Shown here is a 268-nucleotide sequence from Molossus molossus, a member of the family "Mason-Pfizer monkey virus packaging signal". Rfam's curators write: This family represents a group of sequences that are related to the Mason-Pfizer monkey virus (MPMV) packaging signal. The packaging signal is located in the 5' UTR and is required for specific RNA encapsidation. Lineage of the source: Eukaryota > Chordata > Gnathostomata > Teleostomi > Molossus.
[Rfam]
RNA sequence: UGGCGCCCAACGUGGGGCUCGAGCACGGGGGAUCCAGUGAAGGACGCCAUUCGAGUGGCCGGCAAAAAGGAAAAGAAAAGGGAACGACGACGUGGGAACCUGCUGCGUCUGCACCCCUCGGGUAAGUGAACGGUGAUUAUGGGUCAAGCAUUGAGCCAAGAUAAGAUGUUUGUUGAAGGACUAGGAAAGGCUAUCAAGGCACGAGGAGUAAAGGUGAAAAUUAAGCAUUUGUGUCAGUAUUUUGAUUAUAUUAAAGAAGUUUGCCCUU
Numbered sequence: 001u002g003g004c005g006c007c008c009a010a011c012g013u014g015g016g017g018c019u020c021g022a023g024c025a026c027g028g029g030g031g032a033u034c035c036a037g038u039g040a041a042g043g044a045c046g047c048c049a050u051u052c053g054a055g056u057g058g059c060c061g062g063c064a065a066a067a068a069g070g071a072a073a074a075g076a077a078a079a080g081g082g083a084a085c086g087a088c089g090a091c092g093u094g095g096g097a098a099c100c101u102g103c104u105g106c107g108u109c110u111g112c113a114c115c116c117c118u119c120g121g122g123u124a125a126g127u128g129a130a131c132g133g134u135g136a137u138u139a140u141g142g143g144u145c146a147a148g149c150a151u152u153g154a155g156c157c158a159a160g161a162u163a164a165g166a167u168g169u170u171u172g173u174u175g176a177a178g179g180a181c182u183a184g185g186a187a188a189g190g191c192u193a194u195c196a197a198g199g200c201a202c203g204a205g206g207a208g209u210a211a212a213g214g215u216g217a218a219a220a221u222u223a224a225g226c227a228u229u230u231g232u233g234u235c236a237g238u239a240u241u242u243u244g245a246u247u248a249u250a251u252u253a254a255a256g257a258a259g260u261u262u263g264c265c266c267u268u
Stems, first nucleotide, its partner, number of pairs: 006031003012026003036051004081119002086114001091107005127146003131143001134141002153194001155191003202244005208238002212230005253268002256265001